RNA sequence: CUUUGUAUUCUUCCACAGCUUUCUUGAACUGCAACUUCGUUCGUUGCUGCUGUUCUUAUCUUAAUUGACUGUGGUUGCUGCAGCGGUUCAAUAAAGCUGUGGGAAGAUACAAACA
Numbered sequence: 001c002u003u004u005g006u007a008u009u010c011u012u013c014c015a016c017a018g019c020u021u022u023c024u025u026g027a028a029c030u031g032c033a034a035c036u037u038c039g040u041u042c043g044u045u046g047c048u049g050c051u052g053u054u055c056u057u058a059u060c061u062u063a064a065u066u067g068a069c070u071g072u073g074g075u076u077g078c079u080g081c082a083g084c085g086g087u088u089c090a091a092u093a094a095a096g097c098u099g100u101g102g103g104a105a106g107a108u109a110c111a112a113a114c115a
Stems, first nucleotide, its partner, number of pairs: 003112005013102003017098006024091004029086004

A member of the RNA family "MIR396 microRNA precursor family" from Hibiscus syriacus, 115 nucleotides long. The organism belongs to Hibiscus, within Eukaryota. Its family is annotated with RISC complex and miRNA-mediated post-transcriptional gene silencing in the Gene Ontology. On this family, see Jones-Rhoades and Bartel, Mol Cell 2004: "Computational identification of plant microRNAs and their targets, including a stress-induced miRNA".